The family of this 49-nucleotide RNA from Massilia sp. WF1 is "Guanidine-II riboswitch aptamer (mini-ykkC)". Rfam links the family to the GO term regulation of gene expression. Simpler in structure and has fewer highly conserved nucleotide positions than the ykkC-yxkD leader.

RNA sequence: GCAGAAGGACGACCUUCCCCCUGUCGGGAACACAUGCGGGACGGCCCGG
Numbered sequence: 001g002c003a004g005a006a007g008g009a010c011g012a013c014c015u016u017c018c019c020c021c022u023g024u025c026g027g028g029a030a031c032a033c034a035u036g037c038g039g040g041a042c043g044g045c046c047c048g049g
Stems, first nucleotide, its partner, number of pairs: 001020001004017005037048004